[Rfam]
A member of the RNA family "U11 spliceosomal RNA" from Dendrobium nobile, 127 nucleotides long. A reference for the family is Schneider et al. (2004), "Identification of an evolutionarily divergent U11 small nuclear ribonucleoprotein particle in Drosophila", Proc Natl Acad Sci U S A. The family's consensus secondary structure is taken from published work. NCBI's taxonomy places the organism under Eukaryota, Magnoliopsida, Mesangiospermae, Asparagales, Dendrobium.
RNA sequence: AAAAAGGGCCGGUUGGCUAUGUAUGUCAUGCACAUCUUUUAAUUGAUAGGCACUGUAUAGUUAUCAAGAUAUAUGGCUGACAUAAUUUAUGGAUAAUAUAGGGUUGGCUUGCUUGGAUGACCCUCUU
Numbered sequence: 001a002a003a004a005a006g007g008g009c010c011g012g013u014u015g016g017c018u019a020u021g022u023a024u025g026u027c028a029u030g031c032a033c034a035u036c037u038u039u040u041a042a043u044u045g046a047u048a049g050g051c052a053c054u055g056u057a058u059a060g061u062u063a064u065c066a067a068g069a070u071a072u073a074u075g076g077c078u079g080a081c082a083u084a085a086u087u088u089a090u091g092g093a094u095a096a097u098a099u100a101g102g103g104u105u106g107g108c109u110u111g112c113u114u115g116g117a118u119g120a121c122c123c124u125c126u127u
Stems, first nucleotide, its partner, number of pairs: 008081001010079003014028004029052003034047003053076007100124007108116002